RNA sequence: AUGUACCACUCAUACACCGCGGCUCUGAGCGCGCUGUCCACGCCCACCUGACGACUACUCGCUACGUUUUGUUAGCC
Number, nucleotide and partner (000 for none) at each position: 001a000002u016003g015004u014005a013006c000007c000008a000009c000010u000011c000012a000013u005014a004015c003016a002017c000018c000019g000020c036021g035022g034023c033024u000025c031026u000027g000028a000029g000030c000031g025032c000033g023034c022035u021036g020037u000038c000039c000040a000041c000042g000043c000044c000045c000046a000047c000048c075049u074050g073051a072052c071053g070054a069055c000056u000057a000058c000059u000060c000061g000062c000063u000064a000065c000066g000067u000068u000069u054070u053071g052072u051073u050074a049075g048076c000077c000
About this RNA:
The record is a 77-nucleotide sequence from Xanthomonas oryzae, which matches "Xanthomonas sRNA sX9" in Rfam. The base pairs follow the family's consensus structure, which was predicted with RNAalifold. Rfam classes the family as a small RNA. The match comes from Rfam's covariance-model search (77 bits).